RNA sequence: AAAUUGUCUAAUUUAUAGACUUCCAAAAUGAUUAAAAAAUGCGUAUUAUACGCCCCCUAAAUCAGUAAAACUGAUAACUAAAUGAUUAAUAAAGAAGUACGGUAUUUGCCGUACUUUUUAUUUGGAUAUCCCUCUGGUUAAAAUUACUUCAAAUUUGUUAAUAAAAGGUUAA
Numbered sequence: 001a002a003a004u005u006g007u008c009u010a011a012u013u014u015a016u017a018g019a020c021u022u023c024c025a026a027a028a029u030g031a032u033u034a035a036a037a038a039a040u041g042c043g044u045a046u047u048a049u050a051c052g053c054c055c056c057c058u059a060a061a062u063c064a065g066u067a068a069a070a071c072u073g074a075u076a077a078c079u080a081a082a083u084g085a086u087u088a089a090u091a092a093a094g095a096a097g098u099a100c101g102g103u104a105u106u107u108g109c110c111g112u113a114c115u116u117u118u119u120a121u122u123u124g125g126a127u128a129u130c131c132c133u134c135u136g137g138u139u140a141a142a143a144u145u146a147c148u149u150c151a152a153a154u155u156u157g158u159u160a161a162u163a164a165a166a167g168g169u170u171a172a
Base pairs, nucleotide, nucleotide: 005128006127007126008125009124010123011122027083029081030079032077033076041053042052043051044050045049063073064072065071066070090120091119092118093117095116096115097114098113099112100111101110102109103108137159139157140156141155142154144152145151

The family of this 172-nucleotide RNA from Mannheimia varigena is "Actinobacillus sRNA 11". The match comes from Rfam's covariance-model search (84 bits). The organism belongs to Mannheimia varigena, within Bacteria. Pairs were carried over by alignment from the consensus structure, which was predicted with RNAfold. Arrc stands for Actinobacillus pleuropneumoniae Regulatory RNA Candidate. TargetRNA2 was used for the predictions. radA gene target may be involved in stress resistance.